[Rfam]
RNA sequence: GAAGCGGGAACCUGGCACGGCCAAGGCCGGUCAGACCAGGAGUGCCGGCGCGCAAGUGCCGGCGGCG
Numbered sequence: 001g002a003a004g005c006g007g008g009a010a011c012c013u014g015g016c017a018c019g020g021c022c023a024a025g026g027c028c029g030g031u032c033a034g035a036c037c038a039g040g041a042g043u044g045c046c047g048g049c050g051c052g053c054a055a056g057u058g059c060c061g062g063c064g065g066c067g
Stems, first nucleotide, its partner, number of pairs: 011040005018029004044063008
Dot-bracket structure: ..........(((((..((((....))))......)))))...((((((((....))))))))....
The record is a 67-nucleotide sequence from Parafrankia sp. EAN1pec, which matches "Transposase-2 RNA" in Rfam.